[Rfam]
RNA sequence: CCAGUGCGAUUUCGUCACGUACUGAGUGGGCCUAAGAGAAAUACUAGAUCUGGGAUGACAACCCGACCCAUACAGAACGAAAGUUAAGAAGUCAGAUCGGUAGCCCAUUUCGAGAUGAUGGAUUAAUGAGUAGCGCCUGGCCCCGCGGAGAGGGCU
Numbered sequence: 001c002c003a004g005u006g007c008g009a010u011u012u013c014g015u016c017a018c019g020u021a022c023u024g025a026g027u028g029g030g031c032c033u034a035a036g037a038g039a040a041a042u043a044c045u046a047g048a049u050c051u052g053g054g055a056u057g058a059c060a061a062c063c064c065g066a067c068c069c070a071u072a073c074a075g076a077a078c079g080a081a082a083g084u085u086a087a088g089a090a091g092u093c094a095g096a097u098c099g100g101u102a103g104c105c106c107a108u109u110u111c112g113a114g115a116u117g118a119u120g121g122a123u124u125a126a127u128g129a130g131u132a133g134c135g136c137c138u139g140g141c142c143c144c145g146c147g148g149a150g151a152g153g154g155c156u
Stems, first nucleotide, its partner, number of pairs: 002024007014059004027107005047068001049066002052063002078135002083127005091119004097113004102109001139156005
Dot-bracket structure: .(((((((.....{{{{)))))))..[[[[[...............(.((.((..}}}}..)).)).).........((...(((((...((((..((((.(]]]]].)))))..))))...)))))......))...(((((........)))))